[Rfam]
Nucleotides: 304
Stems, first nucleotide, its partner, number of pairs: 001040003004023006028037003043304011056291002059288003063282002066279002069277003073273001076271004081262002086257001089253002093250001098249003102245001104243002107237002110235005116228005122222003125164007134155009165170001172218002175214002183208003190201003
Number, partner (000 for none) and nucleotide at each position: 001040g002039c003038c004023g005022a006021g007020u008019u009018g010000a011000g012000u013000u014000g015000c016000g017000c018009c019008a020007g021006c022005u023004u024000a025000u026000a027000a028037c029036c030035c031000a032000a033000g034000c035030g036029g037028g038003g039002g040001c041000c042000u043304u044303g045302a046301g047300u048299g049298g050297u051296c052295g053294g054000a055000a056291u057290g058000a059288a060287u061286u062000c063282u064281c065000u066279g067278g068000a069277u070276u071275u072000a073273a074000u075000g076271g077270g078269g079268u080000u081262g082261g083000a084000a085000u086257a087000u088000c089253u090252g091000u092000g093250g094000a095000u096000u097000g098249u099248u100247g101000u102245c103000c104243u105242g106000c107237c108236c109000a110235u111234u112233c113232c114231a115000a116228g117227u118226u119225g120224a121000u122222g123221g124220c125164g126163g127162a128161c129160c130159g131158g132000a133000a134155g135154a136153a137152u138151u139150g140149g141148g142147c143000g144000a145000a146000g147142g148141c149140c150139u151138g152137g153136u154135u155134u156000g157000a158131c159130c160129g161128g162127u163126u164125c165170u166000u167000a168000a169000a170165g171000a172218g173217a174000a175214g176213g177000g178000a179000a180000c181000u182000g183208g184207g185206c186000c187000a188000g189000g190201c191200u192199g193000g194000u195000u196000u197000c198000a199192c200191a201190g202000a203000g204000c205000a206185g207184u208183c209000a210000u211000u212000a213176c214175c215000c216000a217173u218172u219000c220124g221123c222122u223000u224120u225119c226118a227117a228116c229000g230000g231114u232113g233112g234111a235110a236108g237107g238000a239000c240000a241000a242105c243104a244000u245102g246000c247100c248099g249098g250093u251000g252090c253089a254000c255000a256000a257086u258000u259000g260000g261082c262081c263000a264000u265000a266000a267000u268079a269078c270077c271076c272000u273073u274000a275071a276070a277069a278067u279066c280000c281064g282063g283000u284000c285000c286061a287060a288059u289000u290057c291056a292000a293000a294053c295052c296051g297050a298049u299048c300047a301046u302045u303044u304043a
This 304-nucleotide sequence from Zingiber officinale belongs to the Rfam family "Plant signal recognition particle RNA". Taxonomically the source falls in Zingiber (Eukaryota, Embryophyta, Magnoliopsida, Zingiberaceae). The match comes from Rfam's covariance-model search (170 bits). Rfam classes the family as a non-coding RNA gene.